A member of the RNA family "Small nucleolar RNA R44/J54/Z268 family" from Panicum miliaceum, 104 nucleotides long. The base pairs follow the family's consensus structure, which was predicted with PFOLD. Clan: SNORD74 clan.
RNA sequence: AUGGCCGAUGACGAUAAGAAAGACAAAGAUAUCUGCAGUGCUCCUGAUUUAAAUUCAGGACACAAUAGCAUGAUGACUCCGUCUAGGGGAAUCUCUGAUGCUGU
Numbered sequence: 001a002u003g004g005c006c007g008a009u010g011a012c013g014a015u016a017a018g019a020a021a022g023a024c025a026a027a028g029a030u031a032u033c034u035g036c037a038g039u040g041c042u043c044c045u046g047a048u049u050u051a052a053a054u055u056c057a058g059g060a061c062a063c064a065a066u067a068g069c070a071u072g073a074u075g076a077c078u079c080c081g082u083c084u085a086g087g088g089g090a091a092u093c094u095c096u097g098a099u100g101c102u103g104u
Stems, first nucleotide, its partner, number of pairs: 002103004